c-di-GMP-I riboswitch aptamer: an 86-nucleotide RNA from Paenibacillus sp. oral taxon 786. NCBI's taxonomy places the organism under Bacteria, Bacillati, Bacillota, Paenibacillaceae, Paenibacillus sp. oral taxon 786. A search with the family's covariance model found it, with a score of 75 bits. Pairs were carried over by alignment from the consensus structure, which is taken from published work.
RNA sequence: AAGGAAAAAUGGCAAACCCGCUCGAAAGACGGGGACGCAAAGCCACGGGUCUGCGGCCGUAAGGCUAUGAUCGCCGGGUUACCCUA
Numbered sequence: 001a002a003g004g005a006a007a008a009a010u011g012g013c014a015a016a017c018c019c020g021c022u023c024g025a026a027a028g029a030c031g032g033g034g035a036c037g038c039a040a041a042g043c044c045a046c047g048g049g050u051c052u053g054c055g056g057c058c059g060u061a062a063g064g065c066u067a068u069g070a071u072c073g074c075c076g077g078g079u080u081a082c083c084c085u086a
Stems, first nucleotide, its partner, number of pairs: 012038002017033004022029002041080004046076003049071003056065003